Nitrogen stress-induced RNA 1: a 55-nucleotide sequence from Microcoleus sp. FACHB-1515.
[Rfam]
Nucleotides: 055
Stems, first nucleotide, its partner, number of pairs: 002013003024047010
Number, partner (000 for none) and nucleotide at each position: 001000u002013g003012g004011u005000a006000g007000a008000u009000g010000c011004a012003c013002c014000c015000u016000g017000a018000u019000u020000c021000a022000u023000u024047c025046c026045c027044c028043u029042g030041g031040c032039g033038g034000u035000u036000c037000g038033c039032c040031g041030u042029c043028a044027g045026g046025g047024g048000u049000u050000u051000u052000u053000u054000u055000u